A member of the RNA family "Small nucleolar RNA Z278" from Kingdonia uniflora, 118 nucleotides long. From the family's description: snoZ278 is a C/D box small nucleolar RNA. Its methylation guide targets have not been reported. Lineage of the source: Eukaryota > Streptophyta > Embryophyta > Ranunculales > Kingdonia.
RNA sequence: GCUAAUGAUGAUUUGAUCCAAUUAUAUUGAGGUGUUUUGAAACCAAGACUCUGUUUUACAGAGAGAACCUCCUUGGGGACUCUACAUUUCAUUUGAUAUCAAUGGAUCCUACUGAGGC
Numbered sequence: 001g002c003u004a005a006u007g008a009u010g011a012u013u014u015g016a017u018c019c020a021a022u023u024a025u026a027u028u029g030a031g032g033u034g035u036u037u038u039g040a041a042a043c044c045a046a047g048a049c050u051c052u053g054u055u056u057u058a059c060a061g062a063g064a065g066a067a068c069c070u071c072c073u074u075g076g077g078g079a080c081u082c083u084a085c086a087u088u089u090c091a092u093u094u095g096a097u098a099u100c101a102a103u104g105g106a107u108c109c110u111a112c113u114g115a116g117g118c
Stems, first nucleotide, its partner, number of pairs: 001118003049063005
A reference for the family is Chen et al. (2003), "The high diversity of snoRNAs in plants: identification and comparative study of 120 snoRNA genes from Oryza sativa", Nucleic Acids Res. The match comes from Rfam's covariance-model search (52 bits). Rfam classes the family as a C/D-box small nucleolar RNA.